[Rfam]
RNA sequence: UCUCUGCAGUGUCUUAUGGCUUUUUAUUCCUACAUGAUGGUAAUGAAGGCUUAUGUAGGGGUAGAAGCCAUGAAACAGGCGGUGG
Numbered sequence: 001u002c003u004c005u006g007c008a009g010u011g012u013c014u015u016a017u018g019g020c021u022u023u024u025u026a027u028u029c030c031u032a033c034a035u036g037a038u039g040g041u042a043a044u045g046a047a048g049g050c051u052u053a054u055g056u057a058g059g060g061g062u063a064g065a066a067g068c069c070a071u072g073a074a075a076c077a078g079g080c081g082g083u084g085g
Base pairs, nucleotide, nucleotide: 002084004082005081006080007079010077011076012075014073015072016071017070018069019068020067021066022065023064026062027061028060029059030058031057032056033055034054035053036052037051
The family of this 85-nucleotide RNA from Acipenser ruthenus is "mir-135 microRNA precursor family". The organism belongs to Acipenser, within Eukaryota. Pairs were carried over by alignment from the consensus structure, which was predicted with PFOLD.